[Rfam]
RNA sequence: UAGCGAAUAUUCUCGCUGGAUUGACCUUUAUUGUGGUCAUUUCCGGGCUAGACAUUCGCUAGAAUAAAACUAAGCAGUGUCCUCAGAGCUGGCAAAUAGUCUGGCUCUGAUGUUUAAAUGCUUUGUUACAUUA
Numbered sequence: 001u002a003g004c005g006a007a008u009a010u011u012c013u014c015g016c017u018g019g020a021u022u023g024a025c026c027u028u029u030a031u032u033g034u035g036g037u038c039a040u041u042u043c044c045g046g047g048c049u050a051g052a053c054a055u056u057c058g059c060u061a062g063a064a065u066a067a068a069a070c071u072a073a074g075c076a077g078u079g080u081c082c083u084c085a086g087a088g089c090u091g092g093c094a095a096a097u098a099g100u101c102u103g104g105c106u107c108u109g110a111u112g113u114u115u116a117a118a119u120g121c122u123u124u125g126u127u128a129c130a131u132u133a
Stems, first nucleotide, its partner, number of pairs: 003059003016046005022039005069126002072123001074121002083110010
A member of the RNA family "Small nucleolar RNA SNORA72" from Hymenochirus boettgeri, 133 nucleotides long. NCBI's taxonomy places the organism under Eukaryota, Metazoa, Pipidae, Pipinae, Hymenochirus. It is annotated as an H/ACA-box small nucleolar RNA. For this family Rfam cites "The family of box ACA small nucleolar RNAs is defined by an evolutionarily conserved secondary structure and ubiquitous sequence elements essential for RNA accumulation" (Ganot et al., Genes Dev, 1997).